[Rfam]
RNA: Small nucleolar RNA SNORD69
RNA sequence: UACACAAAGCACAUGAUAAGAAAGCACUAAACUGACUCAAUGUGAAGUCCAUUCAAUCCAAUACUGAGCUUUGUGAA
Dot-bracket structure: (.((((((((.........................................................)))))))).)
Numbered sequence: 001u002a003c004a005c006a007a008a009g010c011a012c013a014u015g016a017u018a019a020g021a022a023a024g025c026a027c028u029a030a031a032c033u034g035a036c037u038c039a040a041u042g043u044g045a046a047g048u049c050c051a052u053u054c055a056a057u058c059c060a061a062u063a064c065u066g067a068g069c070u071u072u073g074u075g076a077a
Stems, first nucleotide, its partner, number of pairs: 001077001003075008